terC RNA: a 59-nucleotide RNA from Microvirga guangxiensis. Pairs were carried over by alignment from the consensus structure, which is taken from published work. It is annotated as a cis-regulatory element.
RNA sequence: UAGCCAGGCCGGGCCCCUCUGGUCGCUCAUACUUUGGGCGGCGAUGUCGGACUGGAUGA
Numbered sequence: 001u002a003g004c005c006a007g008g009c010c011g012g013g014c015c016c017c018u019c020u021g022g023u024c025g026c027u028c029a030u031a032c033u034u035u036g037g038g039c040g041g042c043g044a045u046g047u048c049g050g051a052c053u054g055g056a057u058g059a
Stems, first nucleotide, its partner, number of pairs: 006053002009050004022042008